RNA sequence: CAGACCGUUGUCAAUGAUGAAACAUAGUUAAGAUGAAAUUGAUGAUAUAAUUCAACUCCUUCGUCACUACCACUGAGACAACAGAUGG
Numbered sequence: 001c002a003g004a005c006c007g008u009u010g011u012c013a014a015u016g017a018u019g020a021a022a023c024a025u026a027g028u029u030a031a032g033a034u035g036a037a038a039u040u041g042a043u044g045a046u047a048u049a050a051u052u053c054a055a056c057u058c059c060u061u062c063g064u065c066a067c068u069a070c071c072a073c074u075g076a077g078a079c080a081a082c083a084g085a086u087g088g
Stems, first nucleotide, its partner, number of pairs: 001088001003086001005084001007082006
Rfam assigns this 88-nucleotide RNA from Ramphastos sulfuratus to the family "Small nucleolar RNA SNORD70". The family's RNA type in Rfam is C/D-box small nucleolar RNA. About the family: snoRNA HBII-234 belongs to the C/D family of snoRNAs. It is the human orthologue of the mouse MBII-234 and is predicted to guide 2'O-ribose methylation of the small 18S rRNA on position A512. It is hosted, together with HBII-95, by the core C/D box snoRNA protein encoding gene NOP5/NOP58. NCBI's taxonomy places the organism under Eukaryota, Bilateria, Craniata, Dipnotetrapodomorpha, Ramphastos. Rfam links the family to the GO terms RNA processing and nucleolus.